Shown here is a 263-nucleotide RNA from Ornithorhynchus anatinus, a member of the family "RNase MRP". Taxonomically the source falls in Ornithorhynchus (Eukaryota, Craniata, Mammalia, Monotremata). The base pairs follow the family's consensus structure, which is taken from published work. Rfam classes the family as a ribozyme. Rfam's curators put it in the seed alignment. Gene Ontology terms of the family: rRNA processing, ribonuclease MRP complex and ribonuclease MRP activity.

RNA sequence: AGUGGCGAGCUGAAAGUCUGUUGCCUAGGCUACGAGCUGGGGACUGGUUCCCACCUGAGCGCCUAGGGGAAAGUCCCCGGACCCCGGGCAGAGAGUGCCGCGCGCGCAGGCGCGUUGGGCCGCCUCGUUCGCUCUCUUAGGCCGCCGAGACGCCUCUGGUUGAGCGGUGAGCGUGGGGCGGCCUACUCAGUCAAGUUUGCAUAGUUAUACAGGCAGUGCGCACAGGUGCACCAACUCAACGGGGCUCAAUCUCAGCAAGCCAG
Number, nucleotide and partner (000 for none) at each position: 001a000002g000003u262004g261005g260006c259007g000008a000009g256010c255011u254012g253013a252014a000015a000016g214017u213018c212019u211020g210021u209022u000023g000024c067025c066026u065027a064028g063029g062030c061031u000032a000033c000034g000035a000036g000037c000038u000039g052040g051041g050042g049043a048044c000045u000046g000047g000048u043049u042050c041051c040052c039053a000054c000055c000056u000057g000058a000059g000060c000061g030062c029063c028064u027065a026066g025067g024068g000069g000070a000071a000072a246073g245074u000075c244076c243077c242078c241079g000080g000081a000082c000083c000084c000085c000086g000087g099088g098089c097090a096091g000092a000093g000094a000095g000096u090097g089098c088099c087100g115101c114102g113103c112104g111105c110106g000107c000108a000109g000110g105111c104112g103113c102114g101115u100116u000117g184118g183119g182120c000121c180122g179123c178124c177125u176126c175127g000128u000129u000130c173131g172132c171133u170134c000135u000136c000137u000138u000139a000140g000141g000142c167143c166144g165145c164146c000147g000148a000149g000150a000151c000152g160153c159154c158155u000156c000157u000158g154159g153160u152161u000162g000163a000164g145165c144166g143167g142168u000169g000170a133171g132172c131173g130174u000175g126176g125177g124178g123179c122180g121181g000182c119183c118184u117185a000186c000187u000188c000189a000190g000191u000192c000193a000194a000195g000196u000197u000198u000199g000200c000201a000202u000203a000204g000205u000206u000207a000208u000209a021210c020211a019212g018213g017214c016215a000216g231217u230218g229219c228220g227221c226222a000223c000224a000225g000226g221227u220228g219229c218230a217231c216232c000233a000234a000235c000236u000237c000238a000239a000240c000241g078242g077243g076244g075245c073246u072247c000248a000249a000250u000251c000252u013253c012254a011255g010256c009257a000258a000259g006260c005261c004262a003263g000